[Rfam]
RNA: Small nucleolar RNA SNORD24
Organism: Python bivittatus
RNA sequence: AGCAAAUGAUGGAAAAGAAUAUUUGCUAACUGAGUGGCAGUGCUGACAAGCCUUUCCACCAAGAUCUCUGAUGCU
Number, nucleotide and partner (000 for none) at each position: 001a075002g074003c073004a072005a000006a000007u000008g000009a000010u000011g000012g000013a000014a000015a000016a000017g000018a000019a000020u000021a000022u000023u000024u000025g000026c000027u000028a000029a000030c000031u000032g000033a000034g000035u000036g000037g000038c000039a000040g000041u000042g000043c000044u000045g000046a000047c000048a000049a000050g000051c000052c000053u000054u000055u000056c000057c000058a000059c000060c000061a000062a000063g000064a000065u000066c000067u000068c000069u000070g000071a000072u004073g003074c002075u001